[Rfam]
RNA sequence: CCGGGGGCUCACGCCCCCGGCUACAUUCUUUCGCCCCGUUGGGGCU
Numbered sequence: 001c002c003g004g005g006g007g008c009u010c011a012c013g014c015c016c017c018c019g020g021c022u023a024c025a026u027u028c029u030u031u032c033g034c035c036c037c038g039u040u041g042g043g044g045c046u
Stems, first nucleotide, its partner, number of pairs: 001020008033045005
A member of the RNA family "Acido-Lenti-1 RNA" from Lacipirellula parvula, 46 nucleotides long.
It is annotated as a small RNA.